[Rfam]
Rfam assigns this 138-nucleotide RNA sequence from Dactylococcopsis salina to the family "Guanidine-I riboswitch aptamer". The literature on the family includes a 2004 paper in Proc Natl Acad Sci U S A by Barrick et al., "New RNA motifs suggest an expanded scope for riboswitches in bacterial genetic control". The source organism's lineage runs through Bacteria, Cyanobacteriota, Cymatolegaceae, Dactylococcopsis and Dactylococcopsis salina.

RNA sequence: UAAUACUGCUUCUAGGGUUCCGACUACCGAAAGCAAGUAGCAUGAUUAUCGUCUGUUAUUUGUGUAGUGACAGGUCCAAGAGAAGCACGUUCUCAUCUCUUUGAUAGAGCGACACGGCGGGACAAAAGCCCGGGAGGU
Dot-bracket structure: ......((((((..((...((((((((....................................)))))..).)).))....))))))((((((((......))..)))))).(.[...(((.......))).)..]..